[Rfam]
RNA sequence: GGAUGUGAGUGCAAUCUGGCUGCAACAUCGGACACUCCAUUGAUGGCCAGGGUUGAUUCAGCAGAUUUGGCUGGCUAGGAGGUUGUCCCCUUCCUCCUUUAGUGCUCCAUGUGCAUCCCUCCUGAAGCUGCACAGUCUGUCAAAGAGGACGACCUUCCCUGGUAGAGGUGUACCAUUCAUCUAUCAAGGGUAUACUGUAGGUGCACUCCCCUGCUAGAACCUCCAAACAAGCUCAAGAUCCAUUUGUAGGAGAACGUAGAGUAGUCAAGCUUCCAGGACUGCAGACACGUCCAAGUGAGGCACUGCAUGGGGCGGUUUGCCAUUGGUU
Numbered sequence: 001g002g003a004u005g006u007g008a009g010u011g012c013a014a015u016c017u018g019g020c021u022g023c024a025a026c027a028u029c030g031g032a033c034a035c036u037c038c039a040u041u042g043a044u045g046g047c048c049a050g051g052g053u054u055g056a057u058u059c060a061g062c063a064g065a066u067u068u069g070g071c072u073g074g075c076u077a078g079g080a081g082g083u084u085g086u087c088c089c090c091u092u093c094c095u096c097c098u099u100u101a102g103u104g105c106u107c108c109a110u111g112u113g114c115a116u117c118c119c120u121c122c123u124g125a126a127g128c129u130g131c132a133c134a135g136u137c138u139g140u141c142a143a144a145g146a147g148g149a150c151g152a153c154c155u156u157c158c159c160u161g162g163u164a165g166a167g168g169u170g171u172a173c174c175a176u177u178c179a180u181c182u183a184u185c186a187a188g189g190g191u192a193u194a195c196u197g198u199a200g201g202u203g204c205a206c207u208c209c210c211c212u213g214c215u216a217g218a219a220c221c222u223c224c225a226a227a228c229a230a231g232c233u234c235a236a237g238a239u240c241c242a243u244u245u246g247u248a249g250g251a252g253a254a255c256g257u258a259g260a261g262u263a264g265u266c267a268a269g270c271u272u273c274c275a276g277g278a279c280u281g282c283a284g285a286c287a288c289g290u291c292c293a294a295g296u297g298a299g300g301c302a303c304u305g306c307a308u309g310g311g312g313c314g315g316u317u318u319g320c321c322a323u324u325g326g327u328u
Base pairs, nucleotide, nucleotide: 001108002107003106006101007100008099009098011096014092018090019089025086026085027084029082033078035074036073037070038069039068042067043066044065046062047061117170118168119167120166121165122139124137125136140162141161142160147158148157149156200270202268206264207263209261211259212258213257214256221252222251223250224249227247228246229245230244231243293328294327297323299321300320301319302316303315304314305313306312